[Rfam]
RNA sequence: GCAGACUCACUCUGUCCCUGGCUGCUGAAUCCAGCCUGGUGCUUUUUCUGUCUGCUACAGGGACUGCAGAGUGGAACUUCCACUAGCCUGGUCGUAGGCCAGUGUUUUCAUACUCUGCUACAUUAUA
Numbered sequence: 001g002c003a004g005a006c007u008c009a010c011u012c013u014g015u016c017c018c019u020g021g022c023u024g025c026u027g028a029a030u031c032c033a034g035c036c037u038g039g040u041g042c043u044u045u046u047u048c049u050g051u052c053u054g055c056u057a058c059a060g061g062g063a064c065u066g067c068a069g070a071g072u073g074g075a076a077c078u079u080c081c082a083c084u085a086g087c088c089u090g091g092u093c094g095u096a097g098g099c100c101a102g103u104g105u106u107u108u109c110a111u112a113c114u115c116u117g118c119u120a121c122a123u124u125a126u127a
Stems, first nucleotide, its partner, number of pairs: 001055006014042002017039002020036001022034003066118007074109003
Annotation: The family of this 127-nucleotide RNA sequence from Conger conger is "Small nucleolar RNA SNORA77". ACA63 (SNORA77) is a member of the H/ACA class of snoRNAs that guide the sites of modification of uridines to pseudouridines. This snoRNA was identified by computational screening and its expression in mouse experimentally verified by Northern blot and primer extension analysis. ACA63 is proposed to guide the pseudouridylation of 18S rRNA U814. The source organism's lineage runs through Eukaryota, Craniata, Vertebrata, Elopocephala and Conger. It is annotated as an H/ACA-box small nucleolar RNA. A search with the family's covariance model found it, with a score of 55 bits. On this family, see Schattner et al., RNA 2006: "A computational screen for mammalian pseudouridylation guide H/ACA RNAs".